RNA sequence: GAACUCUGGAAAGCUGCUGCGCAGCACCGAAGAAGCAAUCCCCAAGGGGAGAAUCUUUCAGGUUCAUCAACAGAGCGCG
Numbered sequence: 001g002a003a004c005u006c007u008g009g010a011a012a013g014c015u016g017c018u019g020c021g022c023a024g025c026a027c028c029g030a031a032g033a034a035g036c037a038a039u040c041c042c043c044a045a046g047g048g049g050a051g052a053a054u055c056u057u058u059c060a061g062g063u064u065c066a067u068c069a070a071c072a073g074a075g076c077g078c079g
Base pairs, nucleotide, nucleotide: 001078004075005074006073007072008071014024015023016022017021026063027062028061029059030058033057034056035055039050040049
A member of the RNA family "Glycine riboswitch aptamer" from Firmicutes bacterium CAG:170, 79 nucleotides long.
It scores 40 bits against the family's covariance model.